[Rfam]
RNA sequence: ACUUAUUCUCAGGGCGGGGUGAGAUUCCCAACCGGCGGUAUCCUAGUUGUUUCUAGGGAGCCCGCGAGCGCUCUUCUUGCCGAAGAGGUCAGCAGAACUGGUGCAAGGCCAGUGCCGACGGUAUAGUCCGGAUGAAAGAGGAUAAGG
Numbered sequence: 001a002c003u004u005a006u007u008c009u010c011a012g013g014g015c016g017g018g019g020u021g022a023g024a025u026u027c028c029c030a031a032c033c034g035g036c037g038g039u040a041u042c043c044u045a046g047u048u049g050u051u052u053c054u055a056g057g058g059a060g061c062c063c064g065c066g067a068g069c070g071c072u073c074u075u076c077u078u079g080c081c082g083a084a085g086a087g088g089u090c091a092g093c094a095g096a097a098c099u100g101g102u103g104c105a106a107g108g109c110c111a112g113u114g115c116c117g118a119c120g121g122u123a124u125a126g127u128c129c130g131g132a133u134g135a136a137a138g139a140g141g142a143u144a145a146g147g
Base pairs, nucleotide, nucleotide: 003145004144005143006142007141008140009139010138017029018028019027031127032126033117034116035065036064037063038062060115061114068093069092097113098112099111100110101109119130120129121128